[Rfam]
RNA sequence: UAGCUUUUGAUGAGUGAUCUUUAUGAUCUUAGCGGAUUUCAGUGAGGCUUUUCGGUCUAUGAUCUUAACAUUGUUGUUACACGCACUGAAGCUU
Numbered sequence: 001u002a003g004c005u006u007u008u009g010a011u012g013a014g015u016g017a018u019c020u021u022u023a024u025g026a027u028c029u030u031a032g033c034g035g036a037u038u039u040c041a042g043u044g045a046g047g048c049u050u051u052u053c054g055g056u057c058u059a060u061g062a063u064c065u066u067a068a069c070a071u072u073g074u075u076g077u078u079a080c081a082c083g084c085a086c087u088g089a090a091g092c093u094u
Stems, first nucleotide, its partner, number of pairs: 002093006
Dot-bracket structure: .((((((................................................................................)))))).
This 94-nucleotide RNA from Zingiber officinale belongs to the Rfam family "Small nucleolar RNA R11/Z151".
Its family is annotated with nucleolus and RNA processing in the Gene Ontology.